Shown here is a 67-nucleotide RNA sequence from Betta splendens, a member of the family "miR-430 microRNA precursor family". Gene Ontology terms of the family: RISC complex and miRNA-mediated post-transcriptional gene silencing. A search with the family's covariance model found it, with a score of 56 bits. The family is grouped with related families in Rfam's "mir-290 clan".
RNA sequence: GAUAUUGCUCUGACACAAGCACUGACUUGAGUAAAAGUAGUAAGUGCUAUUUGUUGGGGUAAUGCCA
Numbered sequence: 001g002a003u004a005u006u007g008c009u010c011u012g013a014c015a016c017a018a019g020c021a022c023u024g025a026c027u028u029g030a031g032u033a034a035a036a037g038u039a040g041u042a043a044g045u046g047c048u049a050u051u052u053g054u055u056g057g058g059g060u061a062a063u064g065c066c067a
Stems, first nucleotide, its partner, number of pairs: 004063008013054003017050001018048006025041003